Annotation: Rfam assigns this 164-nucleotide sequence from Nannospalax galili to the family "U1 spliceosomal RNA". A reference for the family is Zwieb (1997), "The uRNA database", Nucleic Acids Res. The family is grouped with related families in Rfam's "U1 clan". The base pairs follow the family's consensus structure, which is taken from published work.
[Rfam]
RNA sequence: AGACGUUACCUGGCAGGGGAGACACCAUGAUCAGGAAGGUGGUUUUUCCAGGGCAGGGCUCAUCCAUUGCACUUGUGGUGUUCUGACCCCGGCGAUUUCUCCAAAUGCGGGAAACUCGACUGCGUAAUUUGUGGUAGCAGGGGACUGUGUUCGUGCUCCCUCUU
Numbered sequence: 001a002g003a004c005g006u007u008a009c010c011u012g013g014c015a016g017g018g019g020a021g022a023c024a025c026c027a028u029g030a031u032c033a034g035g036a037a038g039g040u041g042g043u044u045u046u047u048c049c050a051g052g053g054c055a056g057g058g059c060u061c062a063u064c065c066a067u068u069g070c071a072c073u074u075g076u077g078g079u080g081u082u083c084u085g086a087c088c089c090c091g092g093c094g095a096u097u098u099c100u101c102c103a104a105a106u107g108c109g110g111g112a113a114a115c116u117c118g119a120c121u122g123c124g125u126a127a128u129u130u131g132u133g134g135u136a137g138c139a140g141g142g143g144a145c146u147g148u149g150u151u152c153g154u155g156c157u158c159c160c161u162c163u164u
Stems, first nucleotide, its partner, number of pairs: 013123004017049006024043005051090003057084002061080004093118003096114003100110002139164005147156003